This 362-nucleotide RNA from Neisseria arctica belongs to the Rfam family "transfer-messenger RNA". The family's RNA type in Rfam is non-coding RNA gene. About the family: Bacterial tmRNA, also known as 10Sa RNA or SsrA, is named for its dual tRNA and mRNA-like properties. The base pairs follow the family's consensus structure, which is taken from published work. Rfam links the family to the GO term RNA catabolic process. On this family, see Williams and Bartel, RNA 1996: "Phylogenetic analysis of tmRNA secondary structure".
RNA sequence: GGGGGCGAUCUUGGUUUCGACGGGGGUUGCGAAGCAGAUGCGGGCAUACCGGGGUCUCAGAUUCCCGUAAAACACUGAAAUUAAAUAGUCGCAAACGACGAAACUUACGCACUGGCCGCUUAAGGCCUGCCGUUGCAACAGUUGGCCGAUGGGCUGUGUAGGGUAAAACCUACGGCAACGUCAUUUACAUUGGCUGGUUUUCUGUCGGGUUACUUGGCAGGAAAUAAGAUUUAAGGUAACUGGUUUCCAAACAGCCUGUCGGUCGGCGGAAUGGAAACAAGAUUCAAAUAGAUUCGACUAAGUAUGUAGAACGCUUUGUAGAGGGCUUUCGGACGGGGGUUCAAUUCCCCCCGCCUCCACCA
Numbered sequence: 001g002g003g004g005g006c007g008a009u010c011u012u013g014g015u016u017u018c019g020a021c022g023g024g025g026g027u028u029g030c031g032a033a034g035c036a037g038a039u040g041c042g043g044g045c046a047u048a049c050c051g052g053g054g055u056c057u058c059a060g061a062u063u064c065c066c067g068u069a070a071a072a073c074a075c076u077g078a079a080a081u082u083a084a085a086u087a088g089u090c091g092c093a094a095a096c097g098a099c100g101a102a103a104c105u106u107a108c109g110c111a112c113u114g115g116c117c118g119c120u121u122a123a124g125g126c127c128u129g130c131c132g133u134u135g136c137a138a139c140a141g142u143u144g145g146c147c148g149a150u151g152g153g154c155u156g157u158g159u160a161g162g163g164u165a166a167a168a169c170c171u172a173c174g175g176c177a178a179c180g181u182c183a184u185u186u187a188c189a190u191u192g193g194c195u196g197g198u199u200u201u202c203u204g205u206c207g208g209g210u211u212a213c214u215u216g217g218c219a220g221g222a223a224a225u226a227a228g229a230u231u232u233a234a235g236g237u238a239a240c241u242g243g244u245u246u247c248c249a250a251a252c253a254g255c256c257u258g259u260c261g262g263u264c265g266g267c268g269g270a271a272u273g274g275a276a277a278c279a280a281g282a283u284u285c286a287a288a289u290a291g292a293u294u295c296g297a298c299u300a301a302g303u304a305u306g307u308a309g310a311a312c313g314c315u316u317u318g319u320a321g322a323g324g325g326c327u328u329u330c331g332g333a334c335g336g337g338g339g340u341u342c343a344a345u346u347c348c349c350c351c352c353g354c355c356u357c358c359a360c361c362a
Stems, first nucleotide, its partner, number of pairs: 001358007021331008034319005040314003045306005050067005057078004112129001131180006138157004145194007197225009208241006243278007252269001254267003258298004262293003335351005